[Rfam]
RNA sequence: GUAUUUGUAUGCAUAUGCAUAUGCAGCAUAUGCAUAUGCAGCAUAUGUAUAUGCAGAUGCAUAUGCAUAUGCAGCAUAUGCAUAUGCAGCAUAUGCAUAUGCAGCAUAUGCAUAUGCAGCAUAUGCAUAUGCAGCAUAUGCAUAUGCAGCAUAUGCAUAUGCUGCAUAUGCAUAUGCAGCAUAAGCAUAUGCUGCAUAUGCAUAUGCUGCAUAUGCAUAUGCUGCAUAUGCAUAUGCUGCAUAUGCAUAUGCAUCUGCAUAUACAUAUGCUGCAUAUGCAUAUGCUGCAUAU
Numbered sequence: 001g002u003a004u005u006u007g008u009a010u011g012c013a014u015a016u017g018c019a020u021a022u023g024c025a026g027c028a029u030a031u032g033c034a035u036a037u038g039c040a041g042c043a044u045a046u047g048u049a050u051a052u053g054c055a056g057a058u059g060c061a062u063a064u065g066c067a068u069a070u071g072c073a074g075c076a077u078a079u080g081c082a083u084a085u086g087c088a089g090c091a092u093a094u095g096c097a098u099a100u101g102c103a104g105c106a107u108a109u110g111c112a113u114a115u116g117c118a119g120c121a122u123a124u125g126c127a128u129a130u131g132c133a134g135c136a137u138a139u140g141c142a143u144a145u146g147c148a149g150c151a152u153a154u155g156c157a158u159a160u161g162c163u164g165c166a167u168a169u170g171c172a173u174a175u176g177c178a179g180c181a182u183a184a185g186c187a188u189a190u191g192c193u194g195c196a197u198a199u200g201c202a203u204a205u206g207c208u209g210c211a212u213a214u215g216c217a218u219a220u221g222c223u224g225c226a227u228a229u230g231c232a233u234a235u236g237c238u239g240c241a242u243a244u245g246c247a248u249a250u251g252c253a254u255c256u257g258c259a260u261a262u263a264c265a266u267a268u269g270c271u272g273c274a275u276a277u278g279c280a281u282a283u284g285c286u287g288c289a290u291a292u
Base pairs, nucleotide, nucleotide: 006284007283008282009281010280011279012278013277016274017273018272019271023270024269025268026252027251028250029249030248031247032246033245036242037241038240039239040238041237042236059081060080061079062078063077064076065075082124083123084122085121086120090116091115092114094112095111096110097109098108099107100106125231126230128228129227130226131225132224133223134222135221137219138218139217140216141215142214144212145211146210147209149207150206151205152204153203155162156161170201171200176195177194178193179192180191181190182189257264

The record is a 292-nucleotide RNA sequence from Paulinella micropora, which matches "isrG Hfq binding RNA" in Rfam. A search with the family's covariance model found it, with a score of 110 bits. Taxonomically the source falls in Paulinella (Eukaryota, Sar, Rhizaria, Euglyphida). On this family, see Padalon-Brauch et al., Nucleic Acids Res 2008: "Small RNAs encoded within genetic islands of Salmonella typhimurium show host-induced expression and role in virulence".